Rfam assigns this 139-nucleotide RNA from Buttiauxella agrestis to the family "CpoB/ybgF ICR thermometer". Imprinting control region from upstream of cpoB/ybgF (tol/pal system protein). For this family Rfam cites "Temperature-responsive in vitro RNA structurome of Yersinia pseudotuberculosis" (Righetti et al., Proc Natl Acad Sci U S A, 2016). By type it is an RNA thermoregulator. The pairing is the family consensus, mapped onto this sequence.
RNA sequence: CCAGAUCUCCAUCGUUUCUUACGGUAAAGAAAAACCAGCAGUUCUGGGUCAUGACGAAGCGGCUUACGCUAAAAACCGUCGUGCCGUUCUGGUUUACUAAGAGAACAGUAUGAACAGUAACCUCAGACAUCACUUGUUG
Numbered sequence: 001c002c003a004g005a006u007c008u009c010c011a012u013c014g015u016u017u018c019u020u021a022c023g024g025u026a027a028a029g030a031a032a033a034a035c036c037a038g039c040a041g042u043u044c045u046g047g048g049u050c051a052u053g054a055c056g057a058a059g060c061g062g063c064u065u066a067c068g069c070u071a072a073a074a075a076c077c078g079u080c081g082u083g084c085c086g087u088u089c090u091g092g093u094u095u096a097c098u099a100a101g102a103g104a105a106c107a108g109u110a111u112g113a114a115c116a117g118u119a120a121c122c123u124c125a126g127a128c129a130u131c132a133c134u135u136g137u138u139g
Stems, first nucleotide, its partner, number of pairs: 001047004007041002014035004019030002054138001057135003062130001065127001068124001075118002078115001079113006086106005